[Rfam]
RNA sequence: GUUAUCGGAUUCAUCUCAAUCCACAUUUGUUGAAGUGGAUUAGGGUGAAAUUUAGUUUAAGUUCCCCUCCAACCCACCCAACAUAUGUGGAUUGAUGCGAAUCUGGCU
Numbered sequence: 001g002u003u004a005u006c007g008g009a010u011u012c013a014u015c016u017c018a019a020u021c022c023a024c025a026u027u028u029g030u031u032g033a034a035g036u037g038g039a040u041u042a043g044g045g046u047g048a049a050a051u052u053u054a055g056u057u058u059a060a061g062u063u064c065c066c067c068u069c070c071a072a073c074c075c076a077c078c079c080a081a082c083a084u085a086u087g088u089g090g091a092u093u094g095a096u097g098c099g100a101a102u103c104u105g106g107c108u
Stems, first nucleotide, its partner, number of pairs: 005106008014097001016095011028083005035077004040072002043069001045067001047065001
The family of this 108-nucleotide sequence from Sorghum bicolor is "MIR5565 microRNA precursor family".
NCBI's taxonomy places the organism under Eukaryota, Viridiplantae, Tracheophyta, Sorghinae, Sorghum.
A search with the family's covariance model found it, with a score of 86 bits.
The family's consensus secondary structure was predicted with RNAalifold.